[Rfam]
RNA: RNase MRP
RNA sequence: GGGCAUUCAGAAGGCUUGCUCUCUGGGCUACACGCUGAGAACCGCGUUUCUCUCCCCUGCCCAGGGGAAAGUCCCCGGACUCGUGGCAGAAAGUGCUCUGGGUUAAUCCAGCGUCGACCUGCACUGCACUACCAAUCAGCCAAGACGUUCAUGUGAACAGAGCUGCGUGUUAGCAUGUCGACUUUGUCAGCUGUAUAGGUAUGCAAGUAACGCGUUAACUUACGCCGAAACAGAACGGGGCUCAUUCUCCGAAUGCA
Numbered sequence: 001g002g003g004c005a006u007u008c009a010g011a012a013g014g015c016u017u018g019c020u021c022u023c024u025g026g027g028c029u030a031c032a033c034g035c036u037g038a039g040a041a042c043c044g045c046g047u048u049u050c051u052c053u054c055c056c057c058u059g060c061c062c063a064g065g066g067g068a069a070a071g072u073c074c075c076c077g078g079a080c081u082c083g084u085g086g087c088a089g090a091a092a093g094u095g096c097u098c099u100g101g102g103u104u105a106a107u108c109c110a111g112c113g114u115c116g117a118c119c120u121g122c123a124c125u126g127c128a129c130u131a132c133c134a135a136u137c138a139g140c141c142a143a144g145a146c147g148u149u150c151a152u153g154u155g156a157a158c159a160g161a162g163c164u165g166c167g168u169g170u171u172a173g174c175a176u177g178u179c180g181a182c183u184u185u186g187u188c189a190g191c192u193g194u195a196u197a198g199g200u201a202u203g204c205a206a207g208u209a210a211c212g213c214g215u216u217a218a219c220u221u222a223c224g225c226c227g228a229a230a231c232a233g234a235a236c237g238g239g240g241c242u243c244a245u246u247c248u249c250c251g252a253a254u255g256c257a
Stems, first nucleotide, its partner, number of pairs: 003256006010249002014208006022065007037052005070242002073240004085097004098111005114181005120175003126170004137165004147158004212225004